[Rfam]
RNA: Group II catalytic intron D1-D4-3
RNA sequence: UCCAUCGUGAGGUGGAAUCUAAAGGAAUUCGGAGGCAAAACAUUGGUCUGAGGGACAUGAACUAUAUAAAAGGCUUACUAAAGACGGAUGAGUUUGCAUAACAAAACAAAGUGAAACACUACCCAAAUCUUUAGGAGUAUAUAUAGCAGAUAUAUGAGGUGAAGGUUGUUGUU
Numbered sequence: 001u002c003c004a005u006c007g008u009g010a011g012g013u014g015g016a017a018u019c020u021a022a023a024g025g026a027a028u029u030c031g032g033a034g035g036c037a038a039a040a041c042a043u044u045g046g047u048c049u050g051a052g053g054g055a056c057a058u059g060a061a062c063u064a065u066a067u068a069a070a071a072g073g074c075u076u077a078c079u080a081a082a083g084a085c086g087g088a089u090g091a092g093u094u095u096g097c098a099u100a101a102c103a104a105a106a107c108a109a110a111g112u113g114a115a116a117c118a119c120u121a122c123c124c125a126a127a128u129c130u131u132u133a134g135g136a137g138u139a140u141a142u143a144u145a146g147c148a149g150a151u152a153u154a155u156g157a158g159g160u161g162a163a164g165g166u167u168g169u170u171g172u173u
Stems, first nucleotide, its partner, number of pairs: 001016006030171003035166002040160002043157003046151005062146006073138003078134007088112002092107004